[Rfam]
RNA sequence: UUCGUGCGGCGUCACGGCUAUACUUUCCCCAUGUUGCUCACUUCUGCUGAUCGUGCGGUGGUUCGAGUGUCAAGCCGUGUCCAGAAUAAUUUUCGUGGACGUCUUAGUGCCUUUUUAACCCUCCUUUUAUGGCUCUUGUAGCCUUUUUGGGAGGAGGGUUGGGUCGGUGGUUCUUACACUC
Number, nucleotide and partner (000 for none) at each position: 001u000002u000003c000004g000005u000006g000007c000008g000009g000010c000011g000012u000013c000014a000015c000016g000017g000018c000019u000020a080021u079022a078023c077024u000025u000026u000027c000028c000029c000030c000031a000032u000033g000034u000035u000036g068037c067038u066039c065040a000041c000042u000043u000044c058045u057046g056047c055048u000049g000050a000051u000052c000053g000054u000055g047056c046057g045058g044059u000060g000061g000062u000063u000064c000065g039066a038067g037068u036069g000070u000071c000072a000073a000074g000075c000076c000077g023078u022079g021080u020081c000082c000083a000084g000085a000086a000087u000088a000089a000090u000091u000092u000093u000094c000095g175096u000097g173098g172099a171100c170101g000102u000103c000104u000105u000106a000107g000108u000109g000110c000111c000112u000113u162114u161115u000116u000117a160118a159119c158120c157121c156122u000123c154124c153125u152126u151127u150128u149129a148130u000131g000132g000133c000134u000135c000136u000137u000138g000139u000140a000141g000142c000143c000144u000145u000146u000147u000148u129149g128150g127151g126152a125153g124154g123155a000156g121157g120158g119159u118160u117161g114162g113163g000164u000165c000166g000167g000168u000169g000170g100171u099172u098173c097174u000175u095176a000177c000178a000179c000180u000181c000
A member of the RNA family "small nucleolar RNA snR35" from Sistotremastrum suecicum, 181 nucleotides long. Its Rfam clan is "SNORA13 clan". The family's RNA type in Rfam is H/ACA-box small nucleolar RNA. It scores 38 bits against the family's covariance model. On this family, see Li et al., J Biol Chem 2005: "Identification and functional analysis of 20 Box H/ACA small nucleolar RNAs (snoRNAs) from Schizosaccharomyces pombe". Its family is annotated with RNA processing and nucleolus in the Gene Ontology.